[Rfam]
Nucleotides: 357
Stems, first nucleotide, its partner, number of pairs: 001353007020326005027319001033314003039308004043301005048066005054078006111134003114130004137177006144167004149163003154191007194223003209237002241277006249269001252265003256293005262287001330346005
Number, partner (000 for none) and nucleotide at each position: 001353g002352g003351g004350g005349c006348u007347g008000a009000u010000u011000a012000g013000g014000a015000u016000u017000c018000g019000a020326c021325a022324g023323g024322a025000u026000c027319u028000a029000g030000g031000a032000a033314g034313c035312u036000g037000g038000a039308g040307g041306u042305g043301c044300a045299u046298g047297c048066a049065g050064a051063g052062g053000u054078g055077c056076g057075g058074a059073u060000u061000g062052c063051c064050u065049c066048u067000u068000a069000a070000a071000a072000a073059a074058u075057c076056c077055g078054c079000u080000u081000u082000a083000a084000a085000u086000a087000g088000u089000c090000g091000c092000a093000a094000a095000c096000g097000a098000c099000g100000a101000a102000a103000a104000c105000u106000a107000c108000g109000c110000a111134c112133u113132a114130g115129c116128c117127g118000c119000u120000u121000a122000a123000a124000a125000a126000c127117c128116g129115g130114u131000a132113u133112a134111g135000g136000c137177c138176c139175u140174u141173c142172c143000a144167c145166c146165a147164c148000a149163g150162c151161u152000u153000u154191g155190u156189u157188u158187g159186c160185u161151a162150g163149c164147g165146u166145g167144g168000a169000u170000u171000c172142g173141g174140a175139a176138g177137g178000u179000c180000a181000u182000a183000u184000a185160a186159g187158c188157a189156a190155a191154c192000u193000a194223g195222c196221g197000a198000g199000g200000g201000a202000a203000a204000c205000u206000c207000u208000c209237c210236u211000g212000a213000g214000g215000u216000u217000g218000a219000a220000c221196c222195g223194c224000g225000a226000a227000a228000u229000a230000g231000u232000a233000u234000c235000a236210g237209g238000a239000c240000c241277g242276c243275u244274a245273u246272u247000a248000g249269g250000a251000a252265u253264c254263c255000u256293g257292u258291u259290u260289g261000c262287c263254g264253g265252a266000g267000u268000c269249c270000g271000a272246a273245a274244u275243a276242g277241u278000u279000a280000a281000a282000u283000a284000a285000a286000a287262g288000a289260c290259a291258a292257a293256c294000u295000a296000a297047g298046c299045a300044u301043g302000u303000a304000g305042u306041a307040c308039c309000a310000a311000a312035a313034g314033u315000a316000g317000a318000c319027a320000u321000u322024u323023u324022c325021u326020g327000g328000a329000c330346g331345c332344g333343g334342g335000u336000u337000c338000a339000a340000a341000u342334c343333c344332c345331g346330c347007c348006a349005g350004c351003u352002c353001c354000a355000c356000c357000a